[Rfam]
RNA sequence: CUUCCAACCCAUCCCCAACCGGGAUGGUAGUUGAAAC
Numbered sequence: 001c002u003u004c005c006a007a008c009c010c011a012u013c014c015c016c017a018a019c020c021g022g023g024a025u026g027g028u029a030g031u032u033g034a035a036a037c
Base pairs, nucleotide, nucleotide: 005033006032007031008030009027010026013023014022015021